[Rfam]
RNA sequence: CGGGGUGUAGCGCAGCUUGGUAGCGCACUUGGUUUGGGACCAAGGUGUCGGGGGUUCAAAUCCCUCCACCCCGA
Numbered sequence: 001c002g003g004g005g006u007g008u009a010g011c012g013c014a015g016c017u018u019g020g021u022a023g024c025g026c027a028c029u030u031g032g033u034u035u036g037g038g039a040c041c042a043a044g045g046u047g048u049c050g051g052g053g054g055u056u057c058a059a060a061u062c063c064c065u066c067c068a069c070c071c072c073g074a
Stems, first nucleotide, its partner, number of pairs: 001073007010026004028044005050066005
RNA: tRNA